[Rfam]
RNA sequence: AUAAAAAAAGGGGUGCAGGGGAAAGGUUCCCUGCUUCUUUAAGGAGGGUGCUCAGACGCGGAUGCGUCGUCGAAGGCAAG
Numbered sequence: 001a002u003a004a005a006a007a008a009a010g011g012g013g014u015g016c017a018g019g020g021g022a023a024a025g026g027u028u029c030c031c032u033g034c035u036u037c038u039u040u041a042a043g044g045a046g047g048g049u050g051c052u053c054a055g056a057c058g059c060g061g062a063u064g065c066g067u068c069g070u071c072g073a074a075g076g077c078a079a080g
Stems, first nucleotide, its partner, number of pairs: 015034003019031004055068005
The family of this 80-nucleotide RNA sequence is "Clostridiales-2 RNA".